RNA sequence: CGUUGUAAUUCGGACAACGGAAACGGCGGCAAGACAGGGGUGCGAUUCCCCUCGCCUCCACCAUGAGCCCCUGGCGCUGGGAGUACGCGACUCCUGGGCGGGGAGCGUUACCCCGACGGGAUGCGUCCCGAGCAAAGGUGUAGCCAGGGUCUCAUGAUGGGGGCGAUCAGUUUCGAUUGGCGCAUGUGACUGGAAGACGCAACGGUGGGUGACCUCCAGGCCAGCUUGCUGGUGAUCGGGUCAGUGCAACAGAAAUGUCGCAUCGAACGACAACGACGUCGUGGCUUACGCCUCGGCUCGUGAAGCCAUCGCCGCCUAA
Numbered sequence: 001c002g003u004u005g006u007a008a009u010u011c012g013g014a015c016a017a018c019g020g021a022a023a024c025g026g027c028g029g030c031a032a033g034a035c036a037g038g039g040g041u042g043c044g045a046u047u048c049c050c051c052u053c054g055c056c057u058c059c060a061c062c063a064u065g066a067g068c069c070c071c072u073g074g075c076g077c078u079g080g081g082a083g084u085a086c087g088c089g090a091c092u093c094c095u096g097g098g099c100g101g102g103g104a105g106c107g108u109u110a111c112c113c114c115g116a117c118g119g120g121a122u123g124c125g126u127c128c129c130g131a132g133c134a135a136a137g138g139u140g141u142a143g144c145c146a147g148g149g150u151c152u153c154a155u156g157a158u159g160g161g162g163g164c165g166a167u168c169a170g171u172u173u174c175g176a177u178u179g180g181c182g183c184a185u186g187u188g189a190c191u192g193g194a195a196g197a198c199g200c201a202a203c204g205g206u207g208g209g210u211g212a213c214c215u216c217c218a219g220g221c222c223a224g225c226u227u228g229c230u231g232g233u234g235a236u237c238g239g240g241u242c243a244g245u246g247c248a249a250c251a252g253a254a255a256u257g258u259c260g261c262a263u264c265g266a267a268c269g270a271c272a273a274c275g276a277c278g279u280c281g282u283g284g285c286u287u288a289c290g291c292c293u294c295g296g297c298u299c300g301u302g303a304a305g306c307c308a309u310c311g312c313c314g315c316c317u318a319a
Stems, first nucleotide, its partner, number of pairs: 001204005015193001017191001026183003030179003036052005053165007205216001
About this RNA
permuted transfer-messenger RNA: a 319-nucleotide RNA. On this family, see Felden et al., RNA 1997: "Probing the structure of the Escherichia coli 10Sa RNA (tmRNA)". The family's consensus secondary structure is taken from published work. It scores 82 bits against the family's covariance model. By type it is a non-coding RNA gene. About the family: Bacterial tmRNA, also known as 10Sa RNA or SsrA, is named for its dual tRNA and mRNA-like properties. Its role is to liberate the mRNA from a stalled ribosome. To accomplish this part of the tmRNA is used as a reading frame that ends in a translation stop signal. The broken mRNA is replaced in the ribosome by the tmRNA and translation of the tmRNA leads to addition of a proteolysis tag to the incomplete protein enabling recognition by a protease. Recently a number of permuted tmRNA genes have been found encoded in two parts. tmRNAs have been identified in eubacteria and some chloroplasts but are absent from archaeal and eukaryote nuclear genomes.